[Rfam]
RNA sequence: GUGCGAAUAUUCUCGCUGACUUGAUCUUCCAGUGUUCAGGUCAGGGCUAGACAUUCGCUAGAUUAUAACUACACAUUGUGUCCUCAGGACUAGUUCUUCUCCUGGUUCUGAUGUUAUAAGUGUCAGUUACAUUU
Numbered sequence: 001g002u003g004c005g006a007a008u009a010u011u012c013u014c015g016c017u018g019a020c021u022u023g024a025u026c027u028u029c030c031a032g033u034g035u036u037c038a039g040g041u042c043a044g045g046g047c048u049a050g051a052c053a054u055u056c057g058c059u060a061g062a063u064u065a066u067a068a069c070u071a072c073a074c075a076u077u078g079u080g081u082c083c084u085c086a087g088g089a090c091u092a093g094u095u096c097u098u099c100u101c102c103u104g105g106u107u108c109u110g111a112u113g114u115u116a117u118a119a120g121u122g123u124c125a126g127u128u129a130c131a132u133u134u
Stems, first nucleotide, its partner, number of pairs: 003058003016044009026034001068127003073123002084111010